A member of the RNA family "Group II catalytic intron D1-D4-4" from Bacillus cytotoxicus, 131 nucleotides long.
About the family: Group II introns are found in rRNA, tRNA and mRNA of organelles in fungi, plants and protists, and also in mRNA in bacteria.
NCBI's taxonomy places the organism under Bacteria, Bacilli, Bacillaceae, Bacillus, Bacillus cytotoxicus.
[Rfam]
RNA sequence: UUGCUAGUGAAAGACAAGCUUAGGUAAGAGCCAAAUCGCCUAGUAGCCGACAGGCAACUGGUGGAGAAAUUCUAAGGUGGAAUCCUUGUAAAAAAGUAACGGCUCCGUUUCCGUCUUUCUAGUCUACUUUA
Numbered sequence: 001u002u003g004c005u006a007g008u009g010a011a012a013g014a015c016a017a018g019c020u021u022a023g024g025u026a027a028g029a030g031c032c033a034a035a036u037c038g039c040c041u042a043g044u045a046g047c048c049g050a051c052a053g054g055c056a057a058c059u060g061g062u063g064g065a066g067a068a069a070u071u072c073u074a075a076g077g078u079g080g081a082a083u084c085c086u087u088g089u090a091a092a093a094a095a096g097u098a099a100c101g102g103c104u105c106c107g108u109u110u111c112c113g114u115c116u117u118u119c120u121a122g123u124c125u126a127c128u129u130u131a
Stems, first nucleotide, its partner, number of pairs: 020043005050089005055080001057078003064071002096111001098109004
Dot-bracket structure: ...................(((((..............)))))......((((((.(((....((....))....))).)....)))))......(.((((....)))).)....................